[Rfam]
RNA sequence: UUGUUUGCGGGAGUAGCAUCAUCAAGAUUCACAUGCAACUGUACUGUGGCGAUGAUAAUAAAACUAACUCUCUUUCCUCUUUCUCCUUUCUUCCCUCCCUGUCCUAAAUUUUAUUGCCGAACAUCUUUGAAAGUGAGAAUCUUGAUGAUGCUGCAUCGGCAAUAAA
Numbered sequence: 001u002u003g004u005u006u007g008c009g010g011g012a013g014u015a016g017c018a019u020c021a022u023c024a025a026g027a028u029u030c031a032c033a034u035g036c037a038a039c040u041g042u043a044c045u046g047u048g049g050c051g052a053u054g055a056u057a058a059u060a061a062a063a064c065u066a067a068c069u070c071u072c073u074u075u076c077c078u079c080u081u082u083c084u085c086c087u088u089u090c091u092u093c094c095c096u097c098c099c100u101g102u103c104c105u106a107a108a109u110u111u112u113a114u115u116g117c118c119g120a121a122c123a124u125c126u127u128u129g130a131a132a133g134u135g136a137g138a139a140u141c142u143u144g145a146u147g148a149u150g151c152u153g154c155a156u157c158g159g160c161a162a163u164a165a166a
Stems, first nucleotide, its partner, number of pairs: 010157002013154018032135002